RNA sequence: GAAGAACGGGGAGACGUGGAUCCGGGCCGGGGUUUCUCGGUCACCGCUUGGCGGCCCGGGUAGUCAGAGGUGAGACCGGCCCCAAUCGGU
Number, nucleotide and partner (000 for none) at each position: 001g090002a000003a000004g087005a086006a000007c000008g083009g082010g081011g080012a000013g065014a064015c063016g000017u000018g000019g000020a000021u000022c059023c058024g057025g056026g055027c054028c053029g052030g000031g000032g000033u000034u000035u000036c000037u000038c000039g077040g076041u073042c072043a071044c070045c069046g000047c000048u000049u000050g000051g000052c029053g028054g027055c026056c025057c024058g023059g022060g000061u000062a000063g015064u014065c013066a000067g000068a000069g045070g044071u043072g042073a041074g000075a000076c040077c039078g000079g000080c011081c010082c009083c008084a000085a000086u005087c004088g000089g000090u001
c-di-GMP-II-GAG riboswitch aptamer: a 90-nucleotide sequence from Paractinoplanes rishiriensis. Its Rfam clan is "c-di-GMP_II riboswitch clan". The organism belongs to Paractinoplanes, within Bacteria.